RNA sequence: GUGAGGUGAUGACGAAGUUUAUCCAUUCUCUGAGUGCAGCAGUGCUGCCCUCCUGCAGCACCCUGAUUCCUGUCCUAGGGUCAGGGUGCUGCGCAGCUUCCAGACACCCUCCAGUCUCUCGGUGUCCCACUGGGGCUGCUGAGGUGUGUGGCUGGCUGCCUGCAGGAGGGGAGUGGUGCUGGCAGGGUUGGAGCCCCUCUUUUGGGGGGGGCUCUGUCCUCACCAAGAUGAGGGAUGAUGUCUGAUCAC
Numbered sequence: 001g002u003g004a005g006g007u008g009a010u011g012a013c014g015a016a017g018u019u020u021a022u023c024c025a026u027u028c029u030c031u032g033a034g035u036g037c038a039g040c041a042g043u044g045c046u047g048c049c050c051u052c053c054u055g056c057a058g059c060a061c062c063c064u065g066a067u068u069c070c071u072g073u074c075c076u077a078g079g080g081u082c083a084g085g086g087u088g089c090u091g092c093g094c095a096g097c098u099u100c101c102a103g104a105c106a107c108c109c110u111c112c113a114g115u116c117u118c119u120c121g122g123u124g125u126c127c128c129a130c131u132g133g134g135g136c137u138g139c140u141g142a143g144g145u146g147u148g149u150g151g152c153u154g155g156c157u158g159c160c161u162g163c164a165g166g167a168g169g170g171g172a173g174u175g176g177u178g179c180u181g182g183c184a185g186g187g188u189u190g191g192a193g194c195c196c197c198u199c200u201u202u203u204g205g206g207g208g209g210g211g212c213u214c215u216g217u218c219c220u221c222a223c224c225a226a227g228a229u230g231a232g233g234g235a236u237g238a239u240g241u242c243u244g245a246u247c248a249c
Stems, first nucleotide, its partner, number of pairs: 010248003017241002020238001023234002026232003030227002034223002039183002042180001043178006049170002051167007059088007068080004093159006106145002112138005119133006185221002187218001189216004194211006
This 249-nucleotide RNA from Trogon melanurus belongs to the Rfam family "Small nucleolar RNA SNORD17".
The match comes from Rfam's covariance-model search (120 bits).